[Rfam]
RNA sequence: AGUCAUAUGCUUGUCUCAAAGAUUAAGCCAUGCAUGUCUAAGUACAUACCGCAUUAAGGUGAAACCGCGAAUGGCUCAUUAAAUCAGUUAUGAUCUAUUGGAUGUUGACCAAUUACAUGGAUAACUGUGGUAAUUCUAGAGCUAAUACAUGCCGAAAAGCUCCAUCGCAAGGUGGGGUGCAUUUAUUAGACCAAGACCAAAAGGUGGAAACACCUUGUUGUGGUGACUCUGAAUAACUGCAGCUGAUCGCAUGGCCUCGUGCCGGCGACAUAUCCUUCGAGUGUCUGCCUUAUCAACUUUCGAUGGUAGGUUAUAUGCCUACCAUGGUUGUAACGGGUAACGGGGAAUCAGGGUUCGAUUCCGGAGAGGGAGCCUGAGAGAUGGCUACCACAUCCAAGGAAGGCAGCAGGCGCGCAAAUUACCCAAUCUUGGAACAAGGAGGUAGUGACGAAAAAUAACAAUACGGGCUUCGCUUACGCGUUCUCGUAAUUGGAAUGAGCACAGUUUAAAUCCUUUAGCGAGGAUCAAUUGGAGGGCAAGUCUGGUGCCAGCAGCCGCGGUAAUUCCAGCUCCAAUAGCGUAUAUUAAAGUUGUUG
Numbered sequence: 001a002g003u004c005a006u007a008u009g010c011u012u013g014u015c016u017c018a019a020a021g022a023u024u025a026a027g028c029c030a031u032g033c034a035u036g037u038c039u040a041a042g043u044a045c046a047u048a049c050c051g052c053a054u055u056a057a058g059g060u061g062a063a064a065c066c067g068c069g070a071a072u073g074g075c076u077c078a079u080u081a082a083a084u085c086a087g088u089u090a091u092g093a094u095c096u097a098u099u100g101g102a103u104g105u106u107g108a109c110c111a112a113u114u115a116c117a118u119g120g121a122u123a124a125c126u127g128u129g130g131u132a133a134u135u136c137u138a139g140a141g142c143u144a145a146u147a148c149a150u151g152c153c154g155a156a157a158a159g160c161u162c163c164a165u166c167g168c169a170a171g172g173u174g175g176g177g178u179g180c181a182u183u184u185a186u187u188a189g190a191c192c193a194a195g196a197c198c199a200a201a202a203g204g205u206g207g208a209a210a211c212a213c214c215u216u217g218u219u220g221u222g223g224u225g226a227c228u229c230u231g232a233a234u235a236a237c238u239g240c241a242g243c244u245g246a247u248c249g250c251a252u253g254g255c256c257u258c259g260u261g262c263c264g265g266c267g268a269c270a271u272a273u274c275c276u277u278c279g280a281g282u283g284u285c286u287g288c289c290u291u292a293u294c295a296a297c298u299u300u301c302g303a304u305g306g307u308a309g310g311u312u313a314u315a316u317g318c319c320u321a322c323c324a325u326g327g328u329u330g331u332a333a334c335g336g337g338u339a340a341c342g343g344g345g346a347a348u349c350a351g352g353g354u355u356c357g358a359u360u361c362c363g364g365a366g367a368g369g370g371a372g373c374c375u376g377a378g379a380g381a382u383g384g385c386u387a388c389c390a391c392a393u394c395c396a397a398g399g400a401a402g403g404c405a406g407c408a409g410g411c412g413c414g415c416a417a418a419u420u421a422c423c424c425a426a427u428c429u430u431g432g433a434a435c436a437a438g439g440a441g442g443u444a445g446u447g448a449c450g451a452a453a454a455a456u457a458a459c460a461a462u463a464c465g466g467g468c469u470u471c472g473c474u475u476a477c478g479c480g481u482u483c484u485c486g487u488a489a490u491u492g493g494a495a496u497g498a499g500c501a502c503a504g505u506u507u508a509a510a511u512c513c514u515u516u517a518g519c520g521a522g523g524a525u526c527a528a529u530u531g532g533a534g535g536g537c538a539a540g541u542c543u544g545g546u547g548c549c550a551g552c553a554g555c556c557g558c559g560g561u562a563a564u565u566c567c568a569g570c571u572c573c574a575a576u577a578g579c580g581u582a583u584a585u586u587a588a589a590g591u592u593g594u595u596g
Stems, first nucleotide, its partner, number of pairs: 001586003005583007014453001016451002020446001021413001027411003031408003036068002042065002048060002075366003085287003090282002094280002100275004116151004125141002128138003159178005166171001183236005196224004204213003247268004252264004289337003296328003303325008341363004345356004368389002371386003391402001393400002419444001421443003427439005459492003462488006471480003499519002501516001503515002529575006542569004551558002
Dot-bracket structure: (((.(((((((..(.((..((.....(((.(((..((....((....((.........))...)).))......(((.......(((..((..((....((((............((((.....((.(((.....))).))......)))).......(((((..(....)..)))))....(((((........((((....(((....))).......)))).......)))))..........((((.((((.....))))))))...))))...))))..))).(((....(((....((((((((.......)))))))))))......)))...((((((((....))))...))))))).((.(((..........))).)).(.((....)).)...)))))).).....(.(((...(((((...))))).)))).)...)).).....(((((((((...(((....)))..)))))).)))......(((.((.........))).)).........((((((.......((((.....((....)).......)))))))))).))))))))))..........
This 596-nucleotide part of an RNA from Sarcoptes scabiei belongs to the Rfam family "Eukaryotic small subunit ribosomal RNA". A search with the family's covariance model found it, with a score of 1776 bits. A reference for the family is Cannone et al. (2002), "The comparative RNA web (CRW) site: an online database of comparative sequence and structure information for ribosomal, intron, and other RNAs", BMC Bioinformatics.